RNA sequence: UUAAAUAUUAAAGCGCCAGGACCGAUAUAAAUCGGUUGACGAGGUGGGGAGUUAUCGAAAGAUUCGGCGGGUGCUCCUCCGGCCGUUAGUGUUGCGGUCGUUAGCUCAUGCUACAAAAAACGCGGGUAACCGCGCAAAAAAAGGCUGAGCAUUCAGCGC
Numbered sequence: 001u002u003a004a005a006u007a008u009u010a011a012a013g014c015g016c017c018a019g020g021a022c023c024g025a026u027a028u029a030a031a032u033c034g035g036u037u038g039a040c041g042a043g044g045u046g047g048g049g050a051g052u053u054a055u056c057g058a059a060a061g062a063u064u065c066g067g068c069g070g071g072u073g074c075u076c077c078u079c080c081g082g083c084c085g086u087u088a089g090u091g092u093u094g095c096g097g098u099c100g101u102u103a104g105c106u107c108a109u110g111c112u113a114c115a116a117a118a119a120a121c122g123c124g125g126g127u128a129a130c131c132g133c134g135c136a137a138a139a140a141a142a143g144g145c146u147g148a149g150c151a152u153u154c155a156g157c158g159c
Stems, first nucleotide, its partner, number of pairs: 020037007046079005055067004080100006105149004111143001121134005